[Rfam]
RNA sequence: ACGUGGGUCGGCCCAUCCCGCUACUGCGGCCAACGAACGGCGGGGCGGGCCGGGGGACUCCGCCGUCACCAUCCCCGCGGACGGCGGACCGGUCCGGGGGGCGUGCGGACGCCUCCCGGGCCGCG
Numbered sequence: 001a002c003g004u005g006g007g008u009c010g011g012c013c014c015a016u017c018c019c020g021c022u023a024c025u026g027c028g029g030c031c032a033a034c035g036a037a038c039g040g041c042g043g044g045g046c047g048g049g050c051c052g053g054g055g056g057a058c059u060c061c062g063c064c065g066u067c068a069c070c071a072u073c074c075c076c077g078c079g080g081a082c083g084g085c086g087g088a089c090c091g092g093u094c095c096g097g098g099g100g101g102c103g104u105g106c107g108g109a110c111g112c113c114u115c116c117c118g119g120g121c122c123g124c125g
Stems, first nucleotide, its partner, number of pairs: 002123001006090003009052006016045007053058001060087008070077001091122013